Source information
This 108-nucleotide sequence from Mycobacterium adipatum belongs to the Rfam family "SAM (S-adenosyl methionine) riboswitch aptamer". About the family: SAM-IV is a mRNA element that regulates gene expression via direct sensing of S-adenosylmethionine (SAM or AdoMet). SAM-IV riboswitches share conserved nucleotide positions with the previously described SAM-I riboswitches sequence analysis and molecular recognition experiments suggest that SAM-I and SAM-IV riboswitches share similar ligand binding sites, but have different scaffolds. Its family is annotated with regulation of gene expression and S-adenosylmethionine metabolic process in the Gene Ontology. A search with the family's covariance model found it, with a score of 65 bits. Taxonomically the source falls in Mycobacterium (Bacteria, Bacillati, Actinomycetota, Mycobacteriales).
RNA sequence: GCUCACGAGCGGACGACUGUUCGGGUACCUGGCCCGUCGUCCCGGCAACCGCGCCCCACCGCACGGUGCCCCAGGGGAAGAGCCGGCACGACAGUGCAAGCGGUGGAC
Numbered sequence: 001g002c003u004c005a006c007g008a009g010c011g012g013a014c015g016a017c018u019g020u021u022c023g024g025g026u027a028c029c030u031g032g033c034c035c036g037u038c039g040u041c042c043c044g045g046c047a048a049c050c051g052c053g054c055c056c057c058a059c060c061g062c063a064c065g066g067u068g069c070c071c072c073a074g075g076g077g078a079a080g081a082g083c084c085g086g087c088a089c090g091a092c093a094g095u096g097c098a099a100g101c102g103g104u105g106g107a108c
Base pairs, nucleotide, nucleotide: 001083002082003081004080009043011042012041013040014039015038016037024034025033044070045069046068049066050065051064053062054061086097087096088095089094